[Rfam]
RNA sequence: AUCGCCAUCUUACGAGGCAGUUUUGGAUGUCAUGACUCUCUCUAAUACUGCCUGGUAAUGAUGAUGAU
Numbered sequence: 001a002u003c004g005c006c007a008u009c010u011u012a013c014g015a016g017g018c019a020g021u022u023u024u025g026g027a028u029g030u031c032a033u034g035a036c037u038c039u040c041u042c043u044a045a046u047a048c049u050g051c052c053u054g055g056u057a058a059u060g061a062u063g064a065u066g067a068u
Stems, first nucleotide, its partner, number of pairs: 002067003006063004010058004015053007023045005